The family of this 74-nucleotide sequence from Ziziphus jujuba is "Plastid-ycf2 5UTR RNA". It scores 67 bits against the family's covariance model. Plastid ycf2 is a non-coding RNA (ncRNA) recognised in plastids. It was found in the prime untranslated region (5UTR) of ycf2 genes, it presents a tRNA-like motif which suggests it can be involved in mRNA maturation, particularly involved in defining the precise 5' end of the transcript. By type it is a cis-regulatory element. Taxonomically the source falls in Ziziphus jujuba (Eukaryota, Euphyllophyta, eudicotyledons, Rosales).
RNA sequence: GUGCAUCUAGUAGGAAUUGAAUCUUUGAAUUUGCCAAUUAUGAGUUGGAUGUUUAACCAUUUAGCCAUGGAAAC
Numbered sequence: 001g002u003g004c005a006u007c008u009a010g011u012a013g014g015a016a017u018u019g020a021a022u023c024u025u026u027g028a029a030u031u032u033g034c035c036a037a038u039u040a041u042g043a044g045u046u047g048g049a050u051g052u053u054u055a056a057c058c059a060u061u062u063a064g065c066c067a068u069g070g071a072a073a074c
Stems, first nucleotide, its partner, number of pairs: 003074001006071003010026001012024003040068003044065008
Dot-bracket structure: ..(..(((.(.(((.......))).).............(((.((((((((......))))))))))))))..)